[Rfam]
Nucleotides: 137
Stems, first nucleotide, its partner, number of pairs: 011123004018024002025118006035060002061103003069078003081097004
Number, partner (000 for none) and nucleotide at each position: 001000a002000u003000g004000a005000u006000a007000a008000u009000a010000u011123c012122g013121c014120u015000u016000a017000a018024u019023c020000u021000u022000u023019g024018a025118g026117c027116g028115g029114g030113g031000g032000a033000a034000c035060c036059a037000a038000u039000u040000u041000u042000a043000c044000u045000u046000u047000u048000a049000u050000u051000u052000a053000a054000g055000u056000a057000u058000u059036u060035g061103g062102g063101g064000u065000g066000a067000a068000u069078c070077c071076u072000u073000u074000a075000c076071a077070g078069g079000u080000a081097g082096g083095g084094u085000a086000c087000u088000c089000u090000c091000a092000a093000a094084a095083c096082c097081c098000g099000a100000a101063c102062c103061c104000g105000a106000c107000a108000g109000c110000u111000a112000a113030c114029c115028u116027c117026g118025u119000a120014a121013g122012c123011g124000u125000g126000u127000u128000g129000a130000g131000a132000g133000g134000a135000a136000a137000a

Record summary
The family of this 137-nucleotide RNA sequence from Mesobacillus campisalis is "c-di-AMP riboswitch aptamer (ydaO/yuaA leader)". About the family: This family represents a conserved RNA structure found upstream of the ydaO and yuaA genes in Bacillus subtilis and related genes in other bacteria. The ydaO/yuaA element is thought to act as a genetic 'off' switch for the ydaO and yuaA genes in its native state. It is believed that the element may be triggered during osmotic shock leading to activation of ydaO, a predicted amino acid transporter gene, and members of the yuaA-yubG operon which code for KtrA and KtrB K+ transporters. The organism belongs to Mesobacillus, within Bacteria.